[Rfam]
RNA sequence: GUGAUUUUUUCAUAGUAUUAGAUUUAAGGUUAACAAAGAUUGGUAGUAAGGCGUUACUACCUUUCGCGUUUUUAGG
Numbered sequence: 001g002u003g004a005u006u007u008u009u010u011c012a013u014a015g016u017a018u019u020a021g022a023u024u025u026a027a028g029g030u031u032a033a034c035a036a037a038g039a040u041u042g043g044u045a046g047u048a049a050g051g052c053g054u055u056a057c058u059a060c061c062u063u064u065c066g067c068g069u070u071u072u073u074a075g076g
Stems, first nucleotide, its partner, number of pairs: 042061007
The record is a 76-nucleotide sequence from Paludibacter propionicigenes, which matches "Bacteroidetes FopS (family of paralogous sRNAs)" in Rfam. The family's consensus secondary structure is taken from published work. Rfam 15.1 lists 822 matches to the family in 178 species. Rfam's curators write: The RNA-binding protein RbpB and BTncRNA_FopS sRNA are involved in the post-transcription regulation of polysaccharide utilisation loci (PUL). FopS sRNAs function as post-transcriptional repressors by binding to the vicinity of the start codon of the first mRNA of target PUL polycistrons, typically corresponding to the cognate SusC homolog, impeding translation of the respective glycan transporter. It is annotated as a small RNA.